[Rfam]
RNA sequence: AACUUAUCAAGAGAGGUGGAGGGACUGGCCCUAUGAAGCCCAGCAACCAGUAUUAUUUCAUUUAAUAAUACAGUGGUGCUAAUUCCAACGGCGUAUGCUGAAAGAUGAGGA
Dot-bracket structure: ..((((((....(.(((...(((..[[[)))......))))((((.((.(((((((........)))))))...))))))...(]]].((((....))))..)))))))..
RNA: SAM riboswitch aptamer (S box leader)